This 84-nucleotide RNA sequence from Bombyx mori belongs to the Rfam family "mir-2807 microRNA precursor family". For this family Rfam cites "Novel microRNAs in silkworm (Bombyx mori)" (Cai et al., Funct Integr Genomics, 2010). The match comes from Rfam's covariance-model search (86 bits). Its family is annotated with RISC complex and miRNA-mediated post-transcriptional gene silencing in the Gene Ontology. Pairs were carried over by alignment from the consensus structure, which was predicted with RNAalifold.

RNA sequence: UUAACUCAAAUUUGUAUGUAGUUGGAACGUUUGCAUACGUUUACGCCUAGGGGCGCUGUUCUAACUGCAUACAAAUUUGAGUUA
Numbered sequence: 001u002u003a004a005c006u007c008a009a010a011u012u013u014g015u016a017u018g019u020a021g022u023u024g025g026a027a028c029g030u031u032u033g034c035a036u037a038c039g040u041u042u043a044c045g046c047c048u049a050g051g052g053g054c055g056c057u058g059u060u061c062u063a064a065c066u067g068c069a070u071a072c073a074a075a076u077u078u079g080a081g082u083u084a
Stems, first nucleotide, its partner, number of pairs: 008078009018068001020066010034052001036050001039047001